A member of the RNA family "Streptococcus sRNA SpF59 (ldcC RNA)" from Anaeromassilibacillus sp. An172, 51 nucleotides long. The match comes from Rfam's covariance-model search (64 bits). On this family, see Mann et al., PLoS Pathog 2012: "Control of virulence by small RNAs in Streptococcus pneumoniae". NCBI's taxonomy places the organism under Bacteria, Bacillota, Eubacteriales, Acutalibacteraceae, Anaeromassilibacillus. It is annotated as a small RNA.

[Rfam]
RNA sequence: UGACCACCAUUUAUUGGUUAAGGCCAUGCGGACAGCCGGGUCAACUGCCGA
Numbered sequence: 001u002g003a004c005c006a007c008c009a010u011u012u013a014u015u016g017g018u019u020a021a022g023g024c025c026a027u028g029c030g031g032a033c034a035g036c037c038g039g040g041u042c043a044a045c046u047g048c049c050g051a
Stems, first nucleotide, its partner, number of pairs: 001043005006018004